[Rfam]
RNA sequence: AAUAGGAGAAUGACAAAUUAGAUUUUUCCUCUCAUUUUCAAACUUCUCCUCCUGAAAAAAUUCAAAUCCAACUAAAAAUGUUAAAAACCAGGAAAAAAAAUCUGAUUUGUCAUUCUCCUAUU
Numbered sequence: 001a002a003u004a005g006g007a008g009a010a011u012g013a014c015a016a017a018u019u020a021g022a023u024u025u026u027u028c029c030u031c032u033c034a035u036u037u038u039c040a041a042a043c044u045u046c047u048c049c050u051c052c053u054g055a056a057a058a059a060a061u062u063c064a065a066a067u068c069c070a071a072c073u074a075a076a077a078a079u080g081u082u083a084a085a086a087a088c089c090a091g092g093a094a095a096a097a098a099a100a101u102c103u104g105a106u107u108u109g110u111c112a113u114u115c116u117c118c119u120a121u122u
Base pairs, nucleotide, nucleotide: 001122002121003120004119005118006117007116008115009114010113011112012111013110014109015108016107017106018105019104020103021102022101023100024099025098026097027096030093031092032091035087036086037085038084040082041081044078045077047075